[Rfam]
RNA: UnaL2 LINE 3' element
Organism: Coregonus sp. 'balchen'
RNA sequence: UCACUAAAAAACUGUAAGUCGCUCUGGAUAAGAGUGUCUGCUAAAUGAUUAAAA
Number, nucleotide and partner (000 for none) at each position: 001u000002c000003a000004c000005u000006a000007a000008a000009a000010a000011a000012c000013u043014g041015u040016a039017a000018g000019u000020c036021g035022c034023u033024c032025u031026g000027g000028a000029u000030a000031a025032g024033a023034g022035u021036g020037u000038c000039u016040g015041c014042u000043a013044a000045a000046u000047g000048a000049u000050u000051a000052a000053a000054a000